[Rfam]
RNA sequence: AGACUCCCAGCUCUGCCAGUUACACUAGGCUUCACUGGUGUUGCUUUUGUAACAGGGAGGGAGAGAAAGGAUGUCCUCAGGACCUCGGAUUGGUCUUAACUGUGGCCUCUCUUUCCAGGCUCGGAUGGGU
Numbered sequence: 001a002g003a004c005u006c007c008c009a010g011c012u013c014u015g016c017c018a019g020u021u022a023c024a025c026u027a028g029g030c031u032u033c034a035c036u037g038g039u040g041u042u043g044c045u046u047u048u049g050u051a052a053c054a055g056g057g058a059g060g061g062a063g064a065g066a067a068a069g070g071a072u073g074u075c076c077u078c079a080g081g082a083c084c085u086c087g088g089a090u091u092g093g094u095c096u097u098a099a100c101u102g103u104g105g106c107c108u109c110u111c112u113u114u115c116c117a118g119g120c121u122c123g124g125a126u127g128g129g130u
Stems, first nucleotide, its partner, number of pairs: 004063005011057005018045003022041004073120001075119003081116001087112003092107004
Rfam assigns this 130-nucleotide RNA from Saimiri boliviensis to the family "Small nucleolar RNA SNORA64/SNORA10 family".
Its Rfam clan is "SNORA64 clan".
The match comes from Rfam's covariance-model search (73 bits).
Its family is annotated with RNA processing and nucleolus in the Gene Ontology.
This family belongs to the H/ACA class of small nucleolar RNAs (snoRNAs) which act as guides in the the modification of uridines to pseudouridines. This family includes the human snoRNAs U64 and ACA10 and mouse MBI-29.